Rfam assigns this 600-nucleotide part of an RNA from Oryctes borbonicus to the family "Eukaryotic small subunit ribosomal RNA". The base pairs follow the family's consensus structure, which is taken from published work. The source organism's lineage runs through Eukaryota, Metazoa, Bilateria, Mandibulata and Oryctes.
[Rfam]
RNA sequence: AUAUGCUUGUCUCAAAGAUUAAGCCAUGCAUGUCUCAGUACGAGCCGUAUUAAGGUGAAACCGCGAAAGGCUCAUUAAAUCAGUUAUGGUUCCUUAGUUCGUACCCACAUUUACUUGGAUAACUGUGGUAAUUCUAGAGCUAAUACAUGCAAACAGAGCUCCGACCGGAGACGGAAGGAGCGCUUUUAUUAGAUCAAAACCAAUCGGUGGCGGGUCUCGUGCCCGACAUCGUACACCUUGGUGACUCUGAAUAACUUUUUGCUGAUCGCACGGUCUCGCACCGGCGACGCAUCUUUCAAAUGUCUGCCUUAUCAACUGUCGAUGGUAGGUUCUGCGCCUACCAUGGUUGUAACGGGUAACGGGGAAUCAGGGUUCGAUUCCGGAGAGGGAGCCUGAGAAACGGCUACCACAUCCAAGGAAGGCAGCAGGCGCGCAAAUUACCCACUCCCGGCACGGGGAGGUAGUGACGAAAAAUAACGAUACGGGACUCAUCCGAGGCCCCGUAAUCGGAAUGAGUACACUCUAAACCCUUUAACGAGGAUCAAUUGGAGGGCAAGUCUGGUGCCAGCAGCCGCGGUAAUUCCAGCUCCAAUAGCGUAU
Numbered sequence: 001a002u003a004u005g006c007u008u009g010u011c012u013c014a015a016a017g018a019u020u021a022a023g024c025c026a027u028g029c030a031u032g033u034c035u036c037a038g039u040a041c042g043a044g045c046c047g048u049a050u051u052a053a054g055g056u057g058a059a060a061c062c063g064c065g066a067a068a069g070g071c072u073c074a075u076u077a078a079a080u081c082a083g084u085u086a087u088g089g090u091u092c093c094u095u096a097g098u099u100c101g102u103a104c105c106c107a108c109a110u111u112u113a114c115u116u117g118g119a120u121a122a123c124u125g126u127g128g129u130a131a132u133u134c135u136a137g138a139g140c141u142a143a144u145a146c147a148u149g150c151a152a153a154c155a156g157a158g159c160u161c162c163g164a165c166c167g168g169a170g171a172c173g174g175a176a177g178g179a180g181c182g183c184u185u186u187u188a189u190u191a192g193a194u195c196a197a198a199a200c201c202a203a204u205c206g207g208u209g210g211c212g213g214g215u216c217u218c219g220u221g222c223c224c225g226a227c228a229u230c231g232u233a234c235a236c237c238u239u240g241g242u243g244a245c246u247c248u249g250a251a252u253a254a255c256u257u258u259u260u261g262c263u264g265a266u267c268g269c270a271c272g273g274u275c276u277c278g279c280a281c282c283g284g285c286g287a288c289g290c291a292u293c294u295u296u297c298a299a300a301u302g303u304c305u306g307c308c309u310u311a312u313c314a315a316c317u318g319u320c321g322a323u324g325g326u327a328g329g330u331u332c333u334g335c336g337c338c339u340a341c342c343a344u345g346g347u348u349g350u351a352a353c354g355g356g357u358a359a360c361g362g363g364g365a366a367u368c369a370g371g372g373u374u375c376g377a378u379u380c381c382g383g384a385g386a387g388g389g390a391g392c393c394u395g396a397g398a399a400a401c402g403g404c405u406a407c408c409a410c411a412u413c414c415a416a417g418g419a420a421g422g423c424a425g426c427a428g429g430c431g432c433g434c435a436a437a438u439u440a441c442c443c444a445c446u447c448c449c450g451g452c453a454c455g456g457g458g459a460g461g462u463a464g465u466g467a468c469g470a471a472a473a474a475u476a477a478c479g480a481u482a483c484g485g486g487a488c489u490c491a492u493c494c495g496a497g498g499c500c501c502c503g504u505a506a507u508c509g510g511a512a513u514g515a516g517u518a519c520a521c522u523c524u525a526a527a528c529c530c531u532u533u534a535a536c537g538a539g540g541a542u543c544a545a546u547u548g549g550a551g552g553g554c555a556a557g558u559c560u561g562g563u564g565c566c567a568g569c570a571g572c573c574g575c576g577g578u579a580a581u582u583c584c585a586g587c588u589c590c591a592a593u594a595g596c597g598u599a600u
Base pairs, nucleotide, nucleotide: 001600002599003598004597005596006595007594010472012470013469016465017432023430024429025428027427028426029425032064033063038061039060044056045055071385072384073383081306082305083304086301087300090299091298096294097293099291114149116147117146123139124138126136127135128134158181159180160179161178162177165174166173186254187253188252189251190250199242200241201240202239217226218225219224266287267286268285269284271283272282273281274280308356309355310354315347316346317345322344323343324342325341326340327339328338329337360382361381362380363379364375365374366373367372387408388407390405391404392403410421412419413418438463440462441461442460446458447457448456449455450454478509479508480507481505482504483503484502485501486500488497489496490495516536517535518533520532546592547591548590549589550588551587559586560585561584562583568575569574
For this family Rfam cites "Crystal structure of the ribosome at 5.5 A resolution" (Yusupov et al., Science, 2001).